[Rfam]
RNA sequence: UGACGUCUUCGGGGUUAGGUGGAAUUCCUUACCGGCGGUGAAAGCCCGCGAGCUGCCUGUAGUGGCAGUUGAUCCGGUGCAACUCCGGAGCCGACAGUGAAAGUCUGGAUGGGAGAAGGCGUCA
Numbered sequence: 001u002g003a004c005g006u007c008u009u010c011g012g013g014g015u016u017a018g019g020u021g022g023a024a025u026u027c028c029u030u031a032c033c034g035g036c037g038g039u040g041a042a043a044g045c046c047c048g049c050g051a052g053c054u055g056c057c058u059g060u061a062g063u064g065g066c067a068g069u070u071g072a073u074c075c076g077g078u079g080c081a082a083c084u085c086c087g088g089a090g091c092c093g094a095c096a097g098u099g100a101a102a103g104u105c106u107g108g109a110u111g112g113g114a115g116a117a118g119g120c121g122u123c124a
Stems, first nucleotide, its partner, number of pairs: 003122008017029003031104002033093002035049004044091002052069003073089005095107003
The record is a 124-nucleotide RNA sequence from Thermanaeromonas sp. C210, which matches "FMN riboswitch aptamer (RFN element)" in Rfam. Pairs were carried over by alignment from the consensus structure, which is taken from published work.